[Rfam]
Nucleotides: 138
Base pairs, nucleotide, nucleotide: 001057002056003055004054005053006052014044015043016042017041018040068131069130070129072126073125074124075123076122077121088118089117090116091115092114093113094112095111096110
Number, partner (000 for none) and nucleotide at each position: 001057g002056c003055a004054u005053g006052g007000a008000c009000g010000a011000a012000u013000u014044c015043u016042g017041c018040a019000c020000u021000a022000g023000c024000u025000c026000u027000c028000c029000u030000c031000a032000g033000u034000a035000g036000c037000u038000a039000c040018u041017g042016c043015a044014g045000u046000c047000a048000g049000a050000c051000a052006c053005u054004a055003u056002g057001c058000c059000a060000g061000a062000g063000u064000a065000a066000a067000u068131u069130c070129c071000u072126u073125u074124u075123u076122c077121a078000c079000a080000c081000u082000c083000u084000g085000c086000u087000u088118g089117g090116u091115g092114u093113g094112c095111u096110u097000u098000u099000c100000c101000u102000g103000u104000g105000a106000g107000a108000a109000c110096a111095g112094g113093c114092a115091u116090g117089c118088c119000u120000u121077u122076g123075g124074a125073a126072g127000u128000g129070g130069g131068a132000u133000a134000c135000a136000u137000a138000a